[Rfam]
Nucleotides: 121
Base pairs, nucleotide, nucleotide: 011120012119013118014117
Number, partner (000 for none) and nucleotide at each position: 001000c002000a003000a004000g005000c006000c007000u008000u009000u010000c011120u012119g013118g014117u015000a016000u017000g018000g019000c020000u021000a022000u023000u024000c025000u026000c027000c028000a029000g030000a031000a032000u033000c034000a035000a036000a037000a038000g039000g040000c041000c042000g043000g044000c045000g046000a047000u048000g049000a050000u051000u052000g053000a054000c055000a056000c057000a058000u059000u060000u061000u062000c063000c064000c065000a066000c067000a068000c069000g070000c071000a072000a073000u074000u075000u076000c077000u078000c079000c080000u081000g082000a083000a084000c085000u086000c087000g088000u089000g090000a091000u092000g093000g094000c095000a096000a097000u098000u099000a100000c101000u102000u103000c104000c105000u106000u107000g108000g109000a110000c111000g112000u113000c114000u115000g116000a117014g118013c119012c120011a121000c
A member of the RNA family "C. elegans snoRNA ceN33" from Caenorhabditis angaria, 121 nucleotides long. It scores 89 bits against the family's covariance model. Lineage of the source: Eukaryota > Bilateria > Protostomia > Rhabditina > Caenorhabditis. For this family Rfam cites "Systematic identification of non-coding RNA 2,2,7-trimethylguanosine cap structures in Caenorhabditis elegans" (Jia et al., BMC Mol Biol, 2007). The family has 5 seed sequences and 11 matches in Rfam 15.1. It is annotated as a C/D-box small nucleolar RNA. Gene Ontology terms of the family: nucleolus and RNA processing.